[Rfam]
RNA sequence: UCAAUUUAAAAAGCGCCUGGACUAUAGUGUAUAUAGUUGACGAGGAGAGGGAGUAUCGAACGGUCGGCGGAUGCCCUCCGGUUGUAAGCAUGACAACCGUAAGACUUCUGAGUGAAAACAAAGAGGCAACUCUUUGCACAAAGCCAGAAGUAAGCAUGCCU
Numbered sequence: 001u002c003a004a005u006u007u008a009a010a011a012a013g014c015g016c017c018u019g020g021a022c023u024a025u026a027g028u029g030u031a032u033a034u035a036g037u038u039g040a041c042g043a044g045g046a047g048a049g050g051g052a053g054u055a056u057c058g059a060a061c062g063g064u065c066g067g068c069g070g071a072u073g074c075c076c077u078c079c080g081g082u083u084g085u086a087a088g089c090a091u092g093a094c095a096a097c098c099g100u101a102a103g104a105c106u107u108c109u110g111a112g113u114g115a116a117a118a119c120a121a122a123g124a125g126g127c128a129a130c131u132c133u134u135u136g137c138a139c140a141a142a143g144c145c146a147g148a149a150g151u152a153a154g155c156a157u158g159c160c161u
Base pairs, nucleotide, nucleotide: 020038021037022036023035024034025033026032047078048077049076050075051074056067057066058065059064079099080098081097082096083095084094104151105150106149107148108147109146110145119136120135121134122133123132124131125130
This 161-nucleotide RNA from Halalkalibacter okhensis belongs to the Rfam family "glmS glucosamine-6-phosphate activated ribozyme aptamer". Rfam's curators write: This entry contains a glucosamine-6-phosphate activated ribozyme that is found in the mRNA for GlmS. GlmS is an enzyme that uses fructose-6-phosphate and glutamine to generate glucosamine-6-phosphate. The ribozyme catalyses self cleavage of the glmS mRNA that is thought to regulate GlmS activity.